[Rfam]
RNA sequence: GACGACCGGCUGGACAUGCCCUGUCAGUGACAGAGCGUCCAGCCCACAAGUGGAGGCUCCGAUCUCCCACCUGACCGUCCUUCGGGACGGCGGGUCAUCCGGUCAGGCGGCCACCAUCGUUCCGUACGGACGAUGGAGUCGCCCGAGCUGCGCCCCGCGGUCAACGCGGCGGUGUUCCGGUAGUGAGGGAGCCCCGCCUGUGAUCGUCCGGGGCAUUUUUU
Numbered sequence: 001g002a003c004g005a006c007c008g009g010c011u012g013g014a015c016a017u018g019c020c021c022u023g024u025c026a027g028u029g030a031c032a033g034a035g036c037g038u039c040c041a042g043c044c045c046a047c048a049a050g051u052g053g054a055g056g057c058u059c060c061g062a063u064c065u066c067c068c069a070c071c072u073g074a075c076c077g078u079c080c081u082u083c084g085g086g087a088c089g090g091c092g093g094g095u096c097a098u099c100c101g102g103u104c105a106g107g108c109g110g111c112c113a114c115c116a117u118c119g120u121u122c123c124g125u126a127c128g129g130a131c132g133a134u135g136g137a138g139u140c141g142c143c144c145g146a147g148c149u150g151c152g153c154c155c156c157g158c159g160g161u162c163a164a165c166g167c168g169g170c171g172g173u174g175u176u177c178c179g180g181u182a183g184u185g186a187g188g189g190a191g192c193c194c195c196g197c198c199u200g201u202g203a204u205c206g207u208c209c210g211g212g213g214c215a216u217u218u219u220u221u
Stems, first nucleotide, its partner, number of pairs: 004104006012040004042095004047073002050070004054065002075090006106143003110140001114136008152214006158206003165202003168198005174192005